[Rfam]
Nucleotides: 086
Base pairs, nucleotide, nucleotide: 001086002085003084004083005082006081007080008079009078012027013026014025015024016023017022028046029045030044031043032042033041048061049060050059051058052057063077064076065075066074
Number, partner (000 for none) and nucleotide at each position: 001086g002085c003084c004083c005082a006081g007080c008079u009078g010000a011000g012027c013026c014025g015024u016023g017022g018000u019000g020000g021000u022017c023016c024015g025014c026013g027012g028046u029045g030044c031043a032042g033041g034000c035000u036000u037000c038000a039000a040000a041033u042032c043031u044030g045029u046028a047000g048061c049060c050059g051058g052057c053000u054000c055000a056000g057052g058051u059050c060049g061048g062000a063077g064076u065075g066074g067000u068000u069000c070000g071000a072000u073000u074066c075065c076064a077063c078009c079008a080007g081006u082005u083004g084003g085002g086001c
A member of the RNA family "Selenocysteine transfer RNA" from Nezara viridula, 86 nucleotides long.